[Rfam]
RNA sequence: GGCCAGGUAGUUCAGCUGGUUAGAACGCCGGCCUGUCACGCCGGAGGUCGAGGGUUCGAACCCCUUCCUGGUCG
Numbered sequence: 001g002g003c004c005a006g007g008u009a010g011u012u013c014a015g016c017u018g019g020u021u022a023g024a025a026c027g028c029c030g031g032c033c034u035g036u037c038a039c040g041c042c043g044g045a046g047g048u049c050g051a052g053g054g055u056u057c058g059a060a061c062c063c064c065u066u067c068c069u070g071g072u073c074g
Base pairs, nucleotide, nucleotide: 001073002072003071004070005069006068007067010026011025012024013023028044029043030042031041032040050066051065052064053063054062
RNA: tRNA
Organism: Ruminococcaceae bacterium AF10-16